[Rfam]
A member of the RNA family "U11 spliceosomal RNA" from Adineta ricciae, 151 nucleotides long. The family's RNA type in Rfam is spliceosomal small nuclear RNA. NCBI's taxonomy places the organism under Eukaryota, Eumetazoa, Bdelloidea, Adinetida, Adineta.
RNA sequence: AAAAAGGGCGUCUGUUGUUCUUUUUUGGUUAAGACAUAACACACGGUUACUCUGUUUUCAUUUGAAAACACCGUGCGGAAUGGCUAUCGAGACAUUUCGGACGCAUAAUCUUUGGAAAUCGGAGCAGUUGAUUUCUUCAAUCGGCGCUCCA
Numbered sequence: 001a002a003a004a005a006g007g008g009c010g011u012c013u014g015u016u017g018u019u020c021u022u023u024u025u026u027g028g029u030u031a032a033g034a035c036a037u038a039a040c041a042c043a044c045g046g047u048u049a050c051u052c053u054g055u056u057u058u059c060a061u062u063u064g065a066a067a068a069c070a071c072c073g074u075g076c077g078g079a080a081u082g083g084c085u086a087u088c089g090a091g092a093c094a095u096u097u098c099g100g101a102c103g104c105a106u107a108a109u110c111u112u113u114g115g116a117a118a119u120c121g122g123a124g125c126a127g128u129u130g131a132u133u134u135c136u137u138c139a140a141u142c143g144g145c146g147c148u149c150c151a
Stems, first nucleotide, its partner, number of pairs: 008104005013041005042075005053070007076099007122149004127145005133140002